Nucleotides: 076
Stems, first nucleotide, its partner, number of pairs: 007074002010071003014067001016065004022059004027054009
Number, partner (000 for none) and nucleotide at each position: 001000u002000g003000u004000u005000u006000a007074u008073c009000u010071c011070u012069a013000g014067g015000g016065u017064u018063g019062a020000u021000c022059u023058a024057u025056u026000a027054g028053a029052a030051u031050u032049a033048c034047u035046u036000a037000u038000c039000u040000g041000a042000g043000c044000c045000a046035a047034a048033g049032u050031a051030a052029u053028u054027c055000a056025a057024g058023u059022a060000a061000u062019u063018c064017a065016g066000g067014u068000g069012u070011a071010g072000u073008g074007a075000a076000a
A member of the RNA family "mir-1297 microRNA precursor family" from Pan troglodytes, 76 nucleotides long. NCBI's taxonomy places the organism under Eukaryota, Dipnotetrapodomorpha, Tetrapoda, Boreoeutheria, Pan. Gene Ontology terms of the family: RISC complex and miRNA-mediated post-transcriptional gene silencing.